A member of the RNA family "SAM (S-adenosyl methionine) riboswitch aptamer" from Krasilnikoviella flava, 115 nucleotides long. The family is grouped with related families in Rfam's "SAM clan". A search with the family's covariance model found it, with a score of 82 bits.

RNA sequence: GGUGACGAGCGCCAGCACCCAAGGCCCGGCUCGCUGGCCAGCAACCCUUCGACGUGACGGGGUGCUCCGGGAACGACCUGACCCCGCCGCGCCCGCGGCGGGGUAAGCACGGCUC
Number, nucleotide and partner (000 for none) at each position: 001g078002g077003u076004g000005a000006c000007g000008a000009g039010c000011g038012c037013c036014a035015g034016c033017a000018c000019c000020c000021a000022a031023g030024g000025c000026c000027c000028g000029g000030c023031u022032c000033g016034c015035u014036g013037g012038c011039c009040a066041g065042c064043a000044a000045c062046c061047c060048u000049u057050c056051g000052a000053c000054g000055u000056g050057a049058c000059g000060g047061g046062g045063u000064g042065c041066u040067c000068c000069g000070g000071g000072a000073a000074c000075g000076a003077c002078c001079u000080g000081a104082c103083c102084c101085c100086g099087c098088c097089g096090c095091g000092c000093c000094c000095g090096c089097g088098g087099c086100g085101g084102g083103g082104u081105a000106a000107g000108c000109a000110c000111g000112g000113c000114u000115c000
SAM-IV is a mRNA element that regulates gene expression via direct sensing of S-adenosylmethionine (SAM or AdoMet). SAM-IV riboswitches share conserved nucleotide positions with the previously described SAM-I riboswitches sequence analysis and molecular recognition experiments suggest that SAM-I and SAM-IV riboswitches share similar ligand binding sites, but have different scaffolds. NCBI's taxonomy places the organism under Bacteria, Bacillati, Actinomycetes, Promicromonosporaceae, Krasilnikoviella.